[Rfam]
RNA sequence: CUGACCGCCUCCAAGGUGCCCGAUGCCCAGGCCGCCAGUGAAAGCGCCAACACCCUGCUGCCGACCACCCUUGGCGGGGUCAACUUCGCGCUG
Numbered sequence: 001c002u003g004a005c006c007g008c009c010u011c012c013a014a015g016g017u018g019c020c021c022g023a024u025g026c027c028c029a030g031g032c033c034g035c036c037a038g039u040g041a042a043a044g045c046g047c048c049a050a051c052a053c054c055c056u057g058c059u060g061c062c063g064a065c066c067a068c069c070c071u072u073g074g075c076g077g078g079g080u081c082a083a084c085u086u087c088g089c090g091c092u093g
Stems, first nucleotide, its partner, number of pairs: 003012001025032001034061002077091001079089002
About this RNA: Pyrrolysine insertion sequence mttB: a 93-nucleotide sequence from Halomonas urumqiensis. Rfam classes the family as a cis-regulatory element. Rfam links the family to the GO term pyrrolysine incorporation. For this family Rfam cites "Effects of using coding potential, sequence conservation and mRNA structure conservation for predicting pyrroly-sine containing genes" (Theil Have et al., BMC Bioinformatics, 2013). The base pairs follow the family's consensus structure, which was predicted with CMfinder.